[Rfam]
RNA sequence: UGCAAUAGAAUCGGCUCUCAAGGGCGGUUGCUCAUCUCCGGAAAGGAGGUGAUGCUAUGGAAGUUAAGGAUGCUUUAGCUUUGAUGUUUAUGUUUGGAAUGUUCAUCCUUGCCUUACUUUCCUACUUAAAAAAGAAGUAGACCUCCCUUGAGCGUAGCAGCCUAAGAGGUCUAACUUCUAUGCUUAAAAUUUAUGCCGAUCGCCCUUGAGGCAAUCUAUUGUAUGGACCGUAGAUGCUAUUAACAUUUACG
Number, nucleotide and partner (000 for none) at each position: 001u223002g222003c221004a220005a219006u000007a217008g216009a215010a000011u199012c198013g197014g196015c195016u000017c152018u151019c150020a149021a148022g147023g146024g145025c000026g142027g000028u140029u139030g000031c000032u052033c051034a050035u000036c048037u047038c046039c045040g000041g000042a000043a000044a000045g039046g038047a037048g036049g000050u034051g033052a032053u000054g000055c000056u000057a000058u000059g121060g120061a119062a118063g117064u116065u000066a000067a000068g000069g000070a000071u000072g087073c086074u000075u000076u000077a000078g000079c000080u000081u000082u000083g000084a000085u000086g073087u072088u000089u000090a000091u000092g000093u000094u000095u000096g113097g112098a000099a110100u000101g000102u000103u000104c000105a000106u000107c000108c000109u000110u099111g000112c097113c096114u000115u000116a064117c063118u062119u061120u060121c059122c000123u000124a000125c000126u000127u000128a000129a000130a000131a000132a000133a000134g000135a000136a000137g000138u000139a029140g028141a000142c026143c000144u000145c024146c023147c022148u021149u020150g019151a018152g017153c000154g000155u000156a000157g000158c000159a000160g000161c000162c000163u000164a000165a000166g000167a000168g000169g000170u000171c000172u000173a000174a000175c000176u000177u000178c000179u000180a000181u000182g000183c000184u000185u000186a000187a000188a000189a000190u000191u000192u000193a000194u000195g015196c014197c013198g012199a011200u000201c000202g212203c211204c210205c000206u000207u000208g000209a000210g204211g203212c202213a000214a000215u009216c008217u007218a000219u005220u004221g003222u002223a001224u000225g000226g000227a000228c000229c251230g250231u249232a248233g247234a246235u245236g244237c000238u242239a000240u000241u000242a238243a000244c236245a235246u234247u233248u232249a231250c230251g229
RNA: BsrG
Organism: Tepidibacillus decaturensis